Description
Rfam assigns this 98-nucleotide sequence to the family "wcaG RNA".
RNA sequence: AAGAGUUUCCAGUUUCUUUCAAAAACUGGUGGUGCGGAACAUCUGCAACGGUUUCCUAUUUUUCCGUUCGUCUCAAAGAAUAGGUGGCGAGCCUGAGU
Dot-bracket structure: ........(((((((.......)))))))...................[[[...((((((...]]]............))))))..............